[Rfam]
RNA sequence: AAUGAAUGAUGACAAAAUGUUUCGGUCCCAAAUGAUACAUACUGAUUAUACCGUUUUAUCCUGACAUU
Numbered sequence: 001a002a003u004g005a006a007u008g009a010u011g012a013c014a015a016a017a018u019g020u021u022u023c024g025g026u027c028c029c030a031a032a033u034g035a036u037a038c039a040u041a042c043u044g045a046u047u048a049u050a051c052c053g054u055u056u057u058a059u060c061c062u063g064a065c066a067u068u
Stems, first nucleotide, its partner, number of pairs: 001068004
A member of the RNA family "Small nucleolar RNA SNORD73" from Macaca mulatta, 68 nucleotides long. For this family Rfam cites "A novel snoRNA (U73) is encoded within the introns of the human and mouse ribosomal protein S3a genes" (Rebane et al., Gene, 1998). Gene Ontology terms of the family: RNA processing and nucleolus. The family's consensus secondary structure was predicted with PFOLD. By type it is a C/D-box small nucleolar RNA. NCBI's taxonomy places the organism under Eukaryota, Teleostomi, Euarchontoglires, Cercopithecinae, Macaca. The sequence is in the family's curated seed alignment.